RNA sequence: CCUGCCGAAGUUUCCCUCAGGAUAGCAGAAGCUCGUAUCAGUUUUAUGAGGUAAAGCGAAUGAUUAGAGGUAUUGGGAUUGAAACGAUCUUGACCUAUUCUCAAACUUUAAAUAUGUAAGAAGUCCUUGUUACUUAAUUGAACGUGGACAUUUGAAUGAAGAGCUUUUAGUGGGCCAUUUUUGGUAAGCAGAACUGGCGAUGCGGGAUGAACCGAACGUGGAGUUAAGGUGCCGGAAUACACGCUCAUCAGACACCACAAAAGGUGUUAGUUCAUCUAGACAGCCGGACGGUGGCCAUGGAAGUCGGAAUCCGCUAAGGACUGUGUAACAACUCACCGGCCGAAUGAACUAGCCCUGAAAAUGGAUGGCGCUCAAGCGUGUUACCUAUACUUCACCGCUAUGGUUAUUGUGAUGCCAUAGCGAGUAGGCAGGCGUGGAGGUCAGUGACGAAGCCUUGGGAGUGAUCCUGGGUCGAACGGCCUCUAGUGCAGAU
Numbered sequence: 001c002c003u004g005c006c007g008a009a010g011u012u013u014c015c016c017u018c019a020g021g022a023u024a025g026c027a028g029a030a031g032c033u034c035g036u037a038u039c040a041g042u043u044u045u046a047u048g049a050g051g052u053a054a055a056g057c058g059a060a061u062g063a064u065u066a067g068a069g070g071u072a073u074u075g076g077g078a079u080u081g082a083a084a085c086g087a088u089c090u091u092g093a094c095c096u097a098u099u100c101u102c103a104a105a106c107u108u109u110a111a112a113u114a115u116g117u118a119a120g121a122a123g124u125c126c127u128u129g130u131u132a133c134u135u136a137a138u139u140g141a142a143c144g145u146g147g148a149c150a151u152u153u154g155a156a157u158g159a160a161g162a163g164c165u166u167u168u169a170g171u172g173g174g175c176c177a178u179u180u181u182u183g184g185u186a187a188g189c190a191g192a193a194c195u196g197g198c199g200a201u202g203c204g205g206g207a208u209g210a211a212c213c214g215a216a217c218g219u220g221g222a223g224u225u226a227a228g229g230u231g232c233c234g235g236a237a238u239a240c241a242c243g244c245u246c247a248u249c250a251g252a253c254a255c256c257a258c259a260a261a262a263g264g265u266g267u268u269a270g271u272u273c274a275u276c277u278a279g280a281c282a283g284c285c286g287g288a289c290g291g292u293g294g295c296c297a298u299g300g301a302a303g304u305c306g307g308a309a310u311c312c313g314c315u316a317a318g319g320a321c322u323g324u325g326u327a328a329c330a331a332c333u334c335a336c337c338g339g340c341c342g343a344a345u346g347a348a349c350u351a352g353c354c355c356u357g358a359a360a361a362u363g364g365a366u367g368g369c370g371c372u373c374a375a376g377c378g379u380g381u382u383a384c385c386u387a388u389a390c391u392u393c394a395c396c397g398c399u400a401u402g403g404u405u406a407u408u409g410u411g412a413u414g415c416c417a418u419a420g421c422g423a424g425u426a427g428g429c430a431g432g433c434g435u436g437g438a439g440g441u442c443a444g445u446g447a448c449g450a451a452g453c454c455u456u457g458g459g460a461g462u463g464a465u466c467c468u469g470g471g472u473c474g475a476a477c478g479g480c481c482u483c484u485a486g487u488g489c490a491g492a493u
Stems, first nucleotide, its partner, number of pairs: 001432006011024001013022003027168007042121007054109001055107002061103003066098001068096003073093006080086001123149004128144004174198004179193005203214003218395005224389001228385003237382001239381001242378003262356003266353010283340005289313003295307002314318001319334001323332002396422009433488001435485008444477002452472002458467003
A member of the RNA family "Eukaryotic large subunit ribosomal RNA" from Sugiyamaella lignohabitans, 493 nucleotides of a longer RNA. It scores 3407 bits against the family's covariance model. Rfam links the family to the GO terms structural constituent of ribosome and ribosome.